[Rfam]
RNA: mir-965 microRNA precursor family
RNA sequence: UGUCUUUGGGGAAAAGUUUUGCGCCUUAUGUCAUCUUAUACUCAUAAGCGUAGAGCUUUUCCCCUUAGGCG
Numbered sequence: 001u002g003u004c005u006u007u008g009g010g011g012a013a014a015a016g017u018u019u020u021g022c023g024c025c026u027u028a029u030g031u032c033a034u035c036u037u038a039u040a041c042u043c044a045u046a047a048g049c050g051u052a053g054a055g056c057u058u059u060u061c062c063c064c065u066u067a068g069g070c071g
Stems, first nucleotide, its partner, number of pairs: 003069003009063003013059002017055005024048001027046004
Dot-bracket structure: ..(((...(((.((..(((((..(..((((............)))).)..)))))..)).)))...)))..